[Rfam]
RNA sequence: UGAGUAGCACAGAUGAUCGCGGCUGUGGUGUAAGAACCAUAGGUGAGGAAAGUCCGGGCUUCACAGGGCAGGGUGCCGGAUAACGUCCGGUGGAGGUGACUCCAAGGCUAGUGCAACAGAAAUAUACCGCCAGGCAGGAGGUUUUAUUAAUGUUUUUACAUUGGUAGCUUCCGUUGUUCAACAAUAGCAGCUCGCUGCUAUUGUUAUAGACUUAACACUUUAGUGUUAAGUCUAUUGGUAAGGGUGGAAAGGCAGAGUAAGAGACUACCGCAGUACUGGUAACAGUGCUGGCUAUGUAAACCCCAUCCGAAGCAAGACCAAACAUAAAGCUAUACGGCUGCCCGUCGUGCUUUUAGGUAGGUCGCUUGAGCUUGCUGGUAACAGUAAGACUAGAUAGAUGAUCAUCAUCAGCCGUUACUGGCUGAACAUAACCCGGCUUAUAGUGCUGCUCAUAUU
Numbered sequence: 001u002g003a004g005u006a007g008c009a010c011a012g013a014u015g016a017u018c019g020c021g022g023c024u025g026u027g028g029u030g031u032a033a034g035a036a037c038c039a040u041a042g043g044u045g046a047g048g049a050a051a052g053u054c055c056g057g058g059c060u061u062c063a064c065a066g067g068g069c070a071g072g073g074u075g076c077c078g079g080a081u082a083a084c085g086u087c088c089g090g091u092g093g094a095g096g097u098g099a100c101u102c103c104a105a106g107g108c109u110a111g112u113g114c115a116a117c118a119g120a121a122a123u124a125u126a127c128c129g130c131c132a133g134g135c136a137g138g139a140g141g142u143u144u145u146a147u148u149a150a151u152g153u154u155u156u157u158a159c160a161u162u163g164g165u166a167g168c169u170u171c172c173g174u175u176g177u178u179c180a181a182c183a184a185u186a187g188c189a190g191c192u193c194g195c196u197g198c199u200a201u202u203g204u205u206a207u208a209g210a211c212u213u214a215a216c217a218c219u220u221u222a223g224u225g226u227u228a229a230g231u232c233u234a235u236u237g238g239u240a241a242g243g244g245u246g247g248a249a250a251g252g253c254a255g256a257g258u259a260a261g262a263g264a265c266u267a268c269c270g271c272a273g274u275a276c277u278g279g280u281a282a283c284a285g286u287g288c289u290g291g292c293u294a295u296g297u298a299a300a301c302c303c304c305a306u307c308c309g310a311a312g313c314a315a316g317a318c319c320a321a322a323c324a325u326a327a328a329g330c331u332a333u334a335c336g337g338c339u340g341c342c343c344g345u346c347g348u349g350c351u352u353u354u355a356g357g358u359a360g361g362u363c364g365c366u367u368g369a370g371c372u373u374g375c376u377g378g379u380a381a382c383a384g385u386a387a388g389a390c391u392a393g394a395u396a397g398a399u400g401a402u403c404a405u406c407a408u409c410a411g412c413c414g415u416u417a418c419u420g421g422c423u424g425a426a427c428a429u430a431a432c433c434c435g436g437c438u439u440a441u442a443g444u445g446c447u448g449c450u451c452a453u454a455u456u
Stems, first nucleotide, its partner, number of pairs: 001452010011441001012406007020045002023042006050439003054436005059312004066343004071308005076090005091105001092103004106303002111301002113297003127243002129239005137231001251269002254266002270292001271290008316363004326353005334348005371388007
The record is a 456-nucleotide sequence from Eubacterium sp. CAG:248, which matches "Bacterial RNase P class A" in Rfam.
The family's consensus secondary structure is taken from published work.